Source information:
Small nucleolar RNA snoR60: a 74-nucleotide sequence from Phtheirospermum japonicum. Gene Ontology terms of the family: nucleolus and RNA processing. Its Rfam clan is "SNORD101 clan". For this family Rfam cites "Fibrillarin genes encode both a conserved nucleolar protein and a novel small nucleolar RNA involved in ribosomal RNA methylation in Arabidopsis thaliana" (Barneche et al., J Biol Chem, 2000). The family's consensus secondary structure was predicted with PFOLD.
[Rfam]
Nucleotides: 074
Base pairs, nucleotide, nucleotide: 002074003073004072005071
Number, partner (000 for none) and nucleotide at each position: 001000g002074a003073g004072a005071a006000u007000a008000g009000c010000u011000g012000a013000u014000g015000a016000c017000u018000u019000a020000c021000u022000c023000g024000g025000a026000u027000u028000c029000c030000c031000c032000u033000u034000c035000a036000a037000g038000a039000c040000a041000u042000c043000u044000u045000g046000a047000g048000u049000g050000a051000u052000g053000c054000a055000c056000a057000a058000a059000c060000c061000g062000a063000g064000u065000u066000u067000c068000u069000g070000a071005u072004u073003c074002u